[Rfam]
RNA: MIR6217 microRNA precursor family
RNA sequence: UGGCUACAAAAUAACUUAUUCUGUAGCCAUUUUGAGUUACGAUAAUUACUAUGUUAAUUUACGAGAUUAUAGUAACUCCUUGCUAAGUGGUUUACUAUAACGUUACAGUAAACCACUUAGCAAGGAGUUAUUAUAAUCUCGUAAAUUAAUAUAGUAAUUAUCAUAACUCAAAGUAGCUGCAGAAUAAGUUAUUCUGUAGCCA
Number, nucleotide and partner (000 for none) at each position: 001u202002g201003g200004c199005u198006a197007c196008a195009a000010a193011a192012u191013a190014a189015c188016u187017u186018a185019u184020u183021c182022u181023g180024u179025a178026g177027c176028c000029a174030u173031u172032u171033u170034g000035a000036g000037u166038u165039a164040c000041g162042a161043u160044a159045a158046u157047u156048a000049c000050u153051a152052u151053g150054u149055u148056a147057a146058u145059u144060u143061a142062c141063g000064a000065g140066a139067u000068u000069a000070u135071a134072g132073u000074a131075a000076c000077u000078c000079c124080u123081u122082g121083c120084u000085a000086a000087g116088u115089g114090g113091u112092u111093u110094a109095c108096u107097a000098u105099a104100a000101c000102g000103u000104u099105a098106c000107a096108g095109u094110a093111a092112a091113c090114c089115a088116c087117u000118u000119a000120g083121c082122a081123a080124g079125g000126a000127g000128u000129u000130a000131u074132u072133a000134u071135a070136a000137u000138c000139u066140c065141g062142u061143a060144a059145a058146u057147u056148a055149a054150u053151a052152u051153a050154g000155u000156a047157a046158u045159u044160a043161u042162c041163a000164u039165a038166a037167c000168u000169c000170a033171a032172a031173g030174u029175a000176g027177c026178u025179g024180c023181a022182g021183a020184a019185u018186a017187a016188g015189u014190u013191a012192u011193u010194c000195u008196g007197u006198a005199g004200c003201c002202a001